[Rfam]
RNA sequence: CUGCAUGUUGCACCCGGGAUUUUCUGAAAUACACGAUGAUGAAAAAAGACCCAAUGCUCAUGCUAAAUUUUUGUCAUUUAGCGUUGCAGGUUUUCUUAGUUCUUCAAUAACUUAUUUGUAUCAAAAUAACUGUCACAUUU
Numbered sequence: 001c002u003g004c005a006u007g008u009u010g011c012a013c014c015c016g017g018g019a020u021u022u023u024c025u026g027a028a029a030u031a032c033a034c035g036a037u038g039a040u041g042a043a044a045a046a047a048g049a050c051c052c053a054a055u056g057c058u059c060a061u062g063c064u065a066a067a068u069u070u071u072u073g074u075c076a077u078u079u080a081g082c083g084u085u086g087c088a089g090g091u092u093u094u095c096u097u098a099g100u101u102c103u104u105c106a107a108u109a110a111c112u113u114a115u116u117u118g119u120a121u122c123a124a125a126a127u128a129a130c131u132g133u134c135a136c137a138u139u140u
Stems, first nucleotide, its partner, number of pairs: 003063005010057002016051002020047001021045002023042002075132002078129003083122001085120006091110002
The record is a 140-nucleotide RNA from Papaver somniferum, which matches "small nucleolar RNA snoR134" in Rfam. The family's consensus secondary structure was predicted with RNAalifold. The source organism's lineage runs through Eukaryota, Streptophyta, Tracheophyta, Euphyllophyta and Papaver. On this family, see Chen and Wu, Nucleic Acids Res 2009: "Mining small RNA sequencing data: a new approach to identify small nucleolar RNAs in Arabidopsis". Gene Ontology terms of the family: nucleolus and RNA processing.